[Rfam]
RNA sequence: GCCGAGUUGUGUAACGUCAGCUUGUGACCCGAGUGGGGGCAUCAUGGUGAUGGAACAAAGUUUAGGUUUCACUGAGUUGGAUUGGUAGAUGCAUAAUGUUGCUUGCCCACUCCAAGUUGAGAGUUGAGCUAAGGAAUCUUUGCGAAGGCAAAGGUCUCUUGGUUCCUAGACAGGAGGGCACAGCGUGAGGCUGGUUUCACAGAGCAGCGACAACCUCCGGUUCUUGACAGUGGAAGGAUCACAGGCUGCUGCAUCUCCACACCACUGAGCUUGGUUAGCCUAUCUCUUGAACCAUCACUUUU
Numbered sequence: 001g002c003c004g005a006g007u008u009g010u011g012u013a014a015c016g017u018c019a020g021c022u023u024g025u026g027a028c029c030c031g032a033g034u035g036g037g038g039g040c041a042u043c044a045u046g047g048u049g050a051u052g053g054a055a056c057a058a059a060g061u062u063u064a065g066g067u068u069u070c071a072c073u074g075a076g077u078u079g080g081a082u083u084g085g086u087a088g089a090u091g092c093a094u095a096a097u098g099u100u101g102c103u104u105g106c107c108c109a110c111u112c113c114a115a116g117u118u119g120a121g122a123g124u125u126g127a128g129c130u131a132a133g134g135a136a137u138c139u140u141u142g143c144g145a146a147g148g149c150a151a152a153g154g155u156c157u158c159u160u161g162g163u164u165c166c167u168a169g170a171c172a173g174g175a176g177g178g179c180a181c182a183g184c185g186u187g188a189g190g191c192u193g194g195u196u197u198c199a200c201a202g203a204g205c206a207g208c209g210a211c212a213a214c215c216u217c218c219g220g221u222u223c224u225u226g227a228c229a230g231u232g233g234a235a236g237g238a239u240c241a242c243a244g245g246c247u248g249c250u251g252c253a254u255c256u257c258c259a260c261a262c263c264a265c266u267g268a269g270c271u272u273g274g275u276u277a278g279c280c281u282a283u284c285u286c287u288u289g290a291a292c293c294a295u296c297a298c299u300u301u302u
Stems, first nucleotide, its partner, number of pairs: 001040003004023006028037003044301001046299008056289002059287002063282005069277001071275008079263002083259003088255006098249002101246005107237002111234004116228009126165009136155008173218005184209003191202003